[Rfam]
RNA sequence: UUACAAGAAACAAUUGACUUUUUAGGUUCAUUGAAUAAUUUAUGUACCCGGUCUAGAAUAUAGACCAAAUACAUUAAUUAUUCAACGAAUCUAAAAAGUCAAUUGUUUCUUGUAA
Numbered sequence: 001u002u003a004c005a006a007g008a009a010a011c012a013a014u015u016g017a018c019u020u021u022u023u024a025g026g027u028u029c030a031u032u033g034a035a036u037a038a039u040u041u042a043u044g045u046a047c048c049c050g051g052u053c054u055a056g057a058a059u060a061u062a063g064a065c066c067a068a069a070u071a072c073a074u075u076a077a078u079u080a081u082u083c084a085a086c087g088a089a090u091c092u093a094a095a096a097a098g099u100c101a102a103u104u105g106u107u108u109c110u111u112g113u114a115a
Stems, first nucleotide, its partner, number of pairs: 002114006009107005015101011027089003031085010042074003050066003
The family of this 115-nucleotide RNA from Medicago truncatula is "MIR2593 microRNA precursor family". Rfam 15.1 lists 1,262 matches to the family in 6 species. Gene Ontology terms of the family: RISC complex and miRNA-mediated post-transcriptional gene silencing.